[Rfam]
RNA: glmS glucosamine-6-phosphate activated ribozyme aptamer
Organism: Propionigenium maris
RNA sequence: AAAAUAAAAACAGCGCCAGAACUCCCUGUGGAGUUGACGAGGAAUAGGGUUAUCGAAAUUUUCGGCGGAUGCCCUAAAGGUGACUACAGCCUGAGAGAUAGGGAAAAACCUGGGGGUGACCUCAGAGACAAAGGCUAUCUCAGUAGUUAUU
Numbered sequence: 001a002a003a004a005u006a007a008a009a010a011c012a013g014c015g016c017c018a019g020a021a022c023u024c025c026c027u028g029u030g031g032a033g034u035u036g037a038c039g040a041g042g043a044a045u046a047g048g049g050u051u052a053u054c055g056a057a058a059u060u061u062u063c064g065g066c067g068g069a070u071g072c073c074c075u076a077a078a079g080g081u082g083a084c085u086a087c088a089g090c091c092u093g094a095g096a097g098a099u100a101g102g103g104a105a106a107a108a109c110c111u112g113g114g115g116g117u118g119a120c121c122u123c124a125g126a127g128a129c130a131a132a133g134g135c136u137a138u139c140u141c142a143g144u145a146g147u148u149a150u151u
Base pairs, nucleotide, nucleotide: 020035021034022033023032024031025030045076046075047074048073049072053065054064055063056062077092079090081088082087095141096140097139098138099137100136101135110125111124112123113122114121115120